[Rfam]
RNA sequence: CACACGCGGGGCGCCUUUCCGGCCGGUAGAACGGUCAGGAUCCGGUGCCUUUCGGCUCUGGCCCCGCGGAGGUUCAACCGGACGAGGAAAGGA
Numbered sequence: 001c002a003c004a005c006g007c008g009g010g011g012c013g014c015c016u017u018u019c020c021g022g023c024c025g026g027u028a029g030a031a032c033g034g035u036c037a038g039g040a041u042c043c044g045g046u047g048c049c050u051u052u053c054g055g056c057u058c059u060g061g062c063c064c065c066g067c068g069g070a071g072g073u074u075c076a077a078c079c080g081g082a083c084g085a086g087g088a089a090a091g092g093a
Stems, first nucleotide, its partner, number of pairs: 001071001003069001005068007015039001023034002026032001047056003
About this RNA
The record is a 93-nucleotide RNA sequence from Limobrevibacterium gyesilva, which matches "rpsB sRNA" in Rfam. NCBI's taxonomy places the organism under Bacteria, Pseudomonadati, Pseudomonadota, Acetobacterales, Limobrevibacterium. The literature on the family includes a 2009 paper in BMC Genomics by Meyer et al., "Identification of candidate structured RNAs in the marine organism 'Candidatus Pelagibacter ubique'". The match comes from Rfam's covariance-model search (43 bits). The base pairs follow the family's consensus structure, which is taken from published work.